[Rfam]
RNA sequence: CUUUUUUAAUUGAAUCAUCUACUAAACCUUUACCAGUUAAAUGUAUGACUUGGUAUUGGUGUAAUAAUGCUUCUAGGUUUUCACGAAUAGCAUCAUUUAAUUUUUUACUGCCUAAGCUACCACCCAUAACAAGUAAAACCUUUUUAUCUUGUUUAAAUUCAGUUAAUUGAUAGCC
Dot-bracket structure: ................(((...(((...((((...((((...((((......)))).....))))...(..(....((....)).....)..).........(((((((......................)))))))...............)))).....)))...)))....
A member of the RNA family "Staphylococcus sRNA 414", 175 nucleotides long. About the family: Antisense of an annotated CDS (SAOUHSC_1422) but was considered an trans-encoded sRNA rather than a typical antisense RNA. Target prediction revealed enrichment of iron-coding genes and genes with function in cofator metabolism. It is annotated as a small RNA. On this family, see Mader et al., PLoS Genet 2016: "Staphylococcus aureus Transcriptome Architecture: From Laboratory to Infection-Mimicking Conditions".